[Rfam]
This 124-nucleotide RNA sequence from Brassica carinata belongs to the Rfam family "MIR9563 microRNA precursor family". NCBI's taxonomy places the organism under Eukaryota, Viridiplantae, eudicotyledons, Brassicaceae, Brassica.
RNA sequence: GGAAUAUAAGAAACCGUCCCUUAAUUUUUAACUAAAAAAUUAAGAACCAGUUCUUAAAUAAGAUAAUUAAGAGCCAGUUCUUAGUUUUUUUAUUUAGAAGUUAAGAGACAUUUUCUUAUAUUUC
Number, nucleotide and partner (000 for none) at each position: 001g124002g123003a122004a121005u120006a119007u118008a117009a116010g115011a114012a113013a112014c000015c000016g109017u108018c107019c000020c105021u104022u103023a102024a101025u100026u099027u098028u097029u096030a095031a094032c000033u092034a091035a090036a089037a088038a087039a086040u084041u083042a082043a081044g080045a079046a078047c000048c000049a000050g000051u000052u000053c000054u000055u000056a000057a000058a000059u000060a000061a000062g000063a000064u000065a000066a000067u000068u000069a000070a000071g000072a000073g000074c000075c000076a000077g000078u046079u045080c044081u043082u042083a041084g040085u000086u039087u038088u037089u036090u035091u034092a033093u000094u031095u030096a029097g028098a027099a026100g025101u024102u023103a022104a021105g020106a000107g018108a017109c016110a000111u000112u013113u012114u011115c010116u009117u008118a007119u006120a005121u004122u003123u002124c001